[Rfam]
RNA: ASpks TB sRNA
RNA sequence: CUUCACCGACCCCAGCCACAACGGCCGCUCCGACCCACGAUCCUGACCAUAGGUCGCCAACAACGCCUGCGCCUC
Numbered sequence: 001c002u003u004c005a006c007c008g009a010c011c012c013c014a015g016c017c018a019c020a021a022c023g024g025c026c027g028c029u030c031c032g033a034c035c036c037a038c039g040a041u042c043c044u045g046a047c048c049a050u051a052g053g054u055c056g057c058c059a060a061c062a063a064c065g066c067c068u069g070c071g072c073c074u075c
Stems, first nucleotide, its partner, number of pairs: 015025003031071002038065002044059002047056001049054001